[Rfam]
RNA sequence: GCGGAGAUAUUAUGUUUCCGUUCACUCCUCACACCACAAUCCGCCCGGGCUUUUUUAGUUCGGGCGGUU
Numbered sequence: 001g002c003g004g005a006g007a008u009a010u011u012a013u014g015u016u017u018c019c020g021u022u023c024a025c026u027c028c029u030c031a032c033a034c035c036a037c038a039a040u041c042c043g044c045c046c047g048g049g050c051u052u053u054u055u056u057a058g059u060u061c062g063g064g065c066g067g068u069u
Base pairs, nucleotide, nucleotide: 001021002020003019004018005017006016007015008014042066043065044064045063046062047061048060049059050058051057

Shown here is a 69-nucleotide RNA from Hydrocoleum sp. CS-953, a member of the family "Cyanobacterial functional RNA 1".
The literature on the family includes a 2007 paper in BMC Genomics by Voss et al., "A motif-based search in bacterial genomes identifies the ortholog of the small RNA Yfr1 in all lineages of cyanobacteria".
It scores 53 bits against the family's covariance model.
NCBI's taxonomy places the organism under Bacteria, Bacillati, Cyanophyceae, Oscillatoriophycideae, Hydrocoleum.
The family's RNA type in Rfam is small RNA.